[Rfam]
RNA sequence: ACAGUACAAUCUGAUCAGGCCUUAAAGUGGAUGGAACGGAACAUCCAUGGAGGAGCCGGGCCGCUUUAGCGGCAGCAGGUAGGAAACACCUGCGGGACAGUC
Numbered sequence: 001a002c003a004g005u006a007c008a009a010u011c012u013g014a015u016c017a018g019g020c021c022u023u024a025a026a027g028u029g030g031a032u033g034g035a036a037c038g039g040a041a042c043a044u045c046c047a048u049g050g051a052g053g054a055g056c057c058g059g060g061c062c063g064c065u066u067u068a069g070c071g072g073c074a075g076c077a078g079g080u081a082g083g084a085a086a087c088a089c090c091u092g093c094g095g096g097a098c099a100g101u102c
Stems, first nucleotide, its partner, number of pairs: 011100003016096001018057003022051002025048001027046001060073005075093006
Annotation
The family of this 102-nucleotide RNA sequence from Clostridiales bacterium 1_7_47FAA is "NiCo (Nickel/Cobalt) riboswitch aptamer". Lineage of the source: Bacteria > Bacillati > Bacillota > Clostridia > Eubacteriales. Gene Ontology terms of the family: cobalt ion binding and metal ion homeostasis. For this family Rfam cites "Bacterial riboswitches cooperatively bind Ni(2+) or Co(2+) ions and control expression of heavy metal transporters" (Furukawa et al., Mol Cell, 2015). Its Rfam clan is "NiCo_riboswitches". It is one of the family's seed sequences.